[Rfam]
A member of the RNA family "Small Cajal body specific RNA 21" from Otolemur garnettii, 138 nucleotides long. Rfam links the family to the GO terms nucleolus, Cajal body and RNA processing. Rfam 15.1 lists 278 matches to the family in 138 species. Lineage of the source: Eukaryota > Craniata > Gnathostomata > Euarchontoglires > Otolemur. By type it is a small Cajal body RNA.

RNA sequence: UGGCUCAGUUUCCUGGGAGUGUGCUCAGCCUAGUUCACCUCCCCUCAGUUGAGCCAGAGUAGAGGGGCCAGAUAUCCUCCCCUGUGGGAGAGGUAUUUAAGAAAGGAGCUUUGCCUGGGCUGUCCUAGCUUCACAUUU
Numbered sequence: 001u002g003g004c005u006c007a008g009u010u011u012c013c014u015g016g017g018a019g020u021g022u023g024c025u026c027a028g029c030c031u032a033g034u035u036c037a038c039c040u041c042c043c044c045u046c047a048g049u050u051g052a053g054c055c056a057g058a059g060u061a062g063a064g065g066g067g068c069c070a071g072a073u074a075u076c077c078u079c080c081c082c083u084g085u086g087g088g089a090g091a092g093g094u095a096u097u098u099a100a101g102a103a104a105g106g107a108g109c110u111u112u113g114c115c116u117g118g119g120c121u122g123u124c125c126u127a128g129c130u131u132c133a134c135a136u137u138u
Base pairs, nucleotide, nucleotide: 002055003054004053005052006051007050015043016042017041018040019038020037021036023034064132065131066130067129068128070126071125076119077118078117086111087110088109